[Rfam]
A member of the RNA family "c-di-GMP-I-GGC riboswitch aptamer" from Peribacillus loiseleuriae, 84 nucleotides long.

RNA sequence: ACAGAAAAAGGCAAACCUAUUGAAAAAUAGGGACGCAAAGUCACGGGUCUAAGGUAUUGUGCUACGAUGGCUGGGCUGCCUGAA
Numbered sequence: 001a002c003a004g005a006a007a008a009a010g011g012c013a014a015a016c017c018u019a020u021u022g023a024a025a026a027a028u029a030g031g032g033a034c035g036c037a038a039a040g041u042c043a044c045g046g047g048u049c050u051a052a053g054g055u056a057u058u059g060u061g062c063u064a065c066g067a068u069g070g071c072u073g074g075g076c077u078g079c080c081u082g083a084a
Base pairs, nucleotide, nucleotide: 003081004080011036012035016031017030018029019028020027021026034070039077040076041075042074044073045072046071047068048067049066

Annotation
The family's consensus secondary structure is taken from published work.